[Rfam]
RNA: mir-2763 microRNA precursor family
RNA sequence: UACAAUGUACACCAAAGUAGUGACCGUAAUUUAUCGUGAGUUACCAAUAGAUAUUAUGCUCAUUACUUUGGAUAUGUUGUU
Numbered sequence: 001u002a003c004a005a006u007g008u009a010c011a012c013c014a015a016a017g018u019a020g021u022g023a024c025c026g027u028a029a030u031u032u033a034u035c036g037u038g039a040g041u042u043a044c045c046a047a048u049a050g051a052u053a054u055u056a057u058g059c060u061c062a063u064u065a066c067u068u069u070g071g072a073u074a075u076g077u078u079g080u081u
Stems, first nucleotide, its partner, number of pairs: 002080005008074002012071012025058005032053004038045001
Dot-bracket structure: .(((((.((..((((((((((((.(((((..((((..(......)....))))))))).)))))))))))).)).))))).